[Rfam]
A member of the RNA family "c-di-GMP-I riboswitch aptamer" from Paenibacillus nasutitermitis, 85 nucleotides long. The base pairs follow the family's consensus structure, which is taken from published work. The family has 155 seed sequences and 5,092 matches in Rfam 15.1. It scores 81 bits against the family's covariance model.
RNA sequence: UAUUGUAAAAGGCAAACUUAUUGAAAAAUAAGGACGCAAAGUCAUGGGCCUAAAGCGUUAUCGCAAUGGCUGCCAGACCGCCGUU
Numbered sequence: 001u002a003u004u005g006u007a008a009a010a011g012g013c014a015a016a017c018u019u020a021u022u023g024a025a026a027a028a029u030a031a032g033g034a035c036g037c038a039a040a041g042u043c044a045u046g047g048g049c050c051u052a053a054a055g056c057g058u059u060a061u062c063g064c065a066a067u068g069g070c071u072g073c074c075a076g077a078c079c080g081c082c083g084u085u
Base pairs, nucleotide, nucleotide: 012037013036017032018031019030020029021028022027041078042077043076045075046074047073048070049069050068055064056063057062